A member of the RNA family "6S / SsrS RNA" from Caballeronia telluris, 182 nucleotides long. The family's consensus secondary structure is taken from published work.

RNA sequence: UACUCCCUGCCUGGUUCGCCAAGGUCAUAUAUUCCUUGAACCAAUGCCAUUGUGCACGGUUGCGGAAAUUUGUAGCACGGGCGCGCGCGUCACUCUGUCUGAUGUACCCGAAGUGCUGCUUACUGCGACCAAUCUUGAACCCCGGUUCAGGAUGCCGGCCUAGCGGCUGAGGCGGGGACCUU
Numbered sequence: 001u002a003c004u005c006c007c008u009g010c011c012u013g014g015u016u017c018g019c020c021a022a023g024g025u026c027a028u029a030u031a032u033u034c035c036u037u038g039a040a041c042c043a044a045u046g047c048c049a050u051u052g053u054g055c056a057c058g059g060u061u062g063c064g065g066a067a068a069u070u071u072g073u074a075g076c077a078c079g080g081g082c083g084c085g086c087g088c089g090u091c092a093c094u095c096u097g098u099c100u101g102a103u104g105u106a107c108c109c110g111a112a113g114u115g116c117u118g119c120u121u122a123c124u125g126c127g128a129c130c131a132a133u134c135u136u137g138a139a140c141c142c143c144g145g146u147u148c149a150g151g152a153u154g155c156c157g158g159c160c161u162a163g164c165g166g167c168u169g170a171g172g173c174g175g176g177g178a179c180c181u182u
Stems, first nucleotide, its partner, number of pairs: 004178008012169004017165003033152003037149006058130003062126004067121001072119007083107001